Rfam assigns this 45-nucleotide RNA sequence from Actinopolyspora halophila to the family "L31-Actinobacteria ribosomal protein leader". The family is grouped with related families in Rfam's "Ribosomal Protein L31 Leader clan". It is one of the family's seed sequences. The family's consensus secondary structure is taken from published work.
[Rfam]
RNA sequence: CCGGCUCCGGUUCACCUCUGGUCGACACCACGAGGACCCGGUGCC
Numbered sequence: 001c002c003g004g005c006u007c008c009g010g011u012u013c014a015c016c017u018c019u020g021g022u023c024g025a026c027a028c029c030a031c032g033a034g035g036a037c038c039c040g041g042u043g044c045c
Base pairs, nucleotide, nucleotide: 003045004044005043007041008040009039010038015035016034017033018032019030020029021028022027